[Rfam]
RNA sequence: GGCGGGUCCCUGCGCAUUGUGGAAUGGUGAAUCUGGUCAGGUCGGGAACGAAGCAGCCACAGCCAGCCUUCACAAGUGCCGCAGAUCAGGCUCGCCAUU
Numbered sequence: 001g002g003c004g005g006g007u008c009c010c011u012g013c014g015c016a017u018u019g020u021g022g023a024a025u026g027g028u029g030a031a032u033c034u035g036g037u038c039a040g041g042u043c044g045g046g047a048a049c050g051a052a053g054c055a056g057c058c059a060c061a062g063c064c065a066g067c068c069u070u071c072a073c074a075a076g077u078g079c080c081g082c083a084g085a086u087c088a089g090g091c092u093c094g095c096c097a098u099u
Base pairs, nucleotide, nucleotide: 004093005092006091007090008089010084011083012082013081014080015076017075018074019073020072021071022070025065026064027063028062034059035058036057037056042051043050044049
RNA: Bacterial small signal recognition particle RNA
Organism: Oxalobacter vibrioformis